[Rfam]
RNA sequence: CGCACUGUCAUAGGGGAGUAGCAACCCGCCCGUGAUCCGGGCAGGGCUCAUGUCAACAUUCUUGGAUCCUCAGAUCCAUGGCAUGGGCGGCGAUGGUAUCCAUCGCUC
Numbered sequence: 001c002g003c004a005c006u007g008u009c010a011u012a013g014g015g016g017a018g019u020a021g022c023a024a025c026c027c028g029c030c031c032g033u034g035a036u037c038c039g040g041g042c043a044g045g046g047c048u049c050a051u052g053u054c055a056a057c058a059u060u061c062u063u064g065g066a067u068c069c070u071c072a073g074a075u076c077c078a079u080g081g082c083a084u085g086g087g088c089g090g091c092g093a094u095g096g097u098a099u100c101c102a103u104c105g106c107u108c
Stems, first nucleotide, its partner, number of pairs: 026044001028042001046088010063078005089107007
The record is a 108-nucleotide RNA sequence from Aeromonas hydrophila, which matches "Manganese Mn2+ riboswitch aptamer (yybP-ykoY)" in Rfam.
The source organism's lineage runs through Bacteria, Aeromonadales, Aeromonas, Aeromonas hydrophila and Aeromonas hydrophila subsp. hydrophila.
A search with the family's covariance model found it, with a score of 66 bits.
Pairs were carried over by alignment from the consensus structure.